RNA sequence: GUCGAUCUCGGUAGCGUGAGUUAGUGACCCAAGUGGGGACAUUAAGGUGGCUGAACACUGGUUCGGAUUCACCCAGAAGGUUCUGGUGCGCACACUAUGUUGACUCGCCCGCUCCAAGUUGAUUUGCACGGUCUGGGCGUAGGCCUGGGUUGUGUGGUCACUGAAGAGGAGGGUACUGCGUCAGGCUGGUUUCACAGAGCUGCGAUCUCCUCCCUCUCUUGGCAGUGGAAGGAUAACGAGCCGAUGUGUCCCCAGUUCCAACACAGCCUAGUGAGCCGAGUCAGUCGGACAACCACUUUU
Numbered sequence: 001g002u003c004g005a006u007c008u009c010g011g012u013a014g015c016g017u018g019a020g021u022u023a024g025u026g027a028c029c030c031a032a033g034u035g036g037g038g039a040c041a042u043u044a045a046g047g048u049g050g051c052u053g054a055a056c057a058c059u060g061g062u063u064c065g066g067a068u069u070c071a072c073c074c075a076g077a078a079g080g081u082u083c084u085g086g087u088g089c090g091c092a093c094a095c096u097a098u099g100u101u102g103a104c105u106c107g108c109c110c111g112c113u114c115c116a117a118g119u120u121g122a123u124u125u126g127c128a129c130g131g132u133c134u135g136g137g138c139g140u141a142g143g144c145c146u147g148g149g150u151u152g153u154g155u156g157g158u159c160a161c162u163g164a165a166g167a168g169g170a171g172g173g174u175a176c177u178g179c180g181u182c183a184g185g186c187u188g189g190u191u192u193c194a195c196a197g198a199g200c201u202g203c204g205a206u207c208u209c210c211u212c213c214c215u216c217u218c219u220u221g222g223c224a225g226u227g228g229a230a231g232g233a234u235a236a237c238g239a240g241c242c243g244a245u246g247u248g249u250c251c252c253c254a255g256u257u258c259c260a261a262c263a264c265a266g267c268c269u270a271g272u273g274a275g276c277c278g279a280g281u282c283a284g285u286c287g288g289a290c291a292a293c294c295a296c297u298u299u300u
Stems, first nucleotide, its partner, number of pairs: 001040003005022001007020004028037003044299007052291002056287001058284003062280005069274004076267001079259002083255004088251001090249003100244003104240004109232002113229004118223001120160005127154012161166001168213006179204003186197003